The family of this 161-nucleotide RNA from Janibacter alkaliphilus is "c-di-AMP riboswitch aptamer (ydaO/yuaA leader)".
From the family's description: This family represents a conserved RNA structure found upstream of the ydaO and yuaA genes in Bacillus subtilis and related genes in other bacteria.
RNA sequence: AUACCCCUUGAGCUUGUCUGGCGGGAGCGGGGGACCCACGUCCGUACGACCGGCACCACCGGUCUCGGGGUGAAGUCCUCGCGGGUCCGAGAGGGCCCGUAGGGCGGGGUGGUCUCCACCCCAACCCGACAGCUAACCCCGAAGGCGUCAGGAGACGACAC
Dot-bracket structure: ...((..................))..(((((....(.............................)(((.....((((.....................))))..((((.......))))...))).........)))))....................